[Rfam]
RNA: Small nucleolar RNA SNORD22
RNA sequence: UGCCAGUGAGGAGAGCAAACAUCCUGUCUUAACCCCAGUACCAGCCCCAGAGCCAGCAAUGGUGAACCCACUGGGGCUAACUGGGAGAGAGGAUGAGAACUUGUUCCGUAGGAACUGUCUGAGGUAC
Numbered sequence: 001u002g003c004c005a006g007u008g009a010g011g012a013g014a015g016c017a018a019a020c021a022u023c024c025u026g027u028c029u030u031a032a033c034c035c036c037a038g039u040a041c042c043a044g045c046c047c048c049a050g051a052g053c054c055a056g057c058a059a060u061g062g063u064g065a066a067c068c069c070a071c072u073g074g075g076g077c078u079a080a081c082u083g084g085g086a087g088a089g090a091g092g093a094u095g096a097g098a099a100c101u102u103g104u105u106c107c108g109u110a111g112g113a114a115c116u117g118u119c120u121g122a123g124g125u126a127c
Stems, first nucleotide, its partner, number of pairs: 001126004
Dot-bracket structure: ((((......................................................................................................................)))).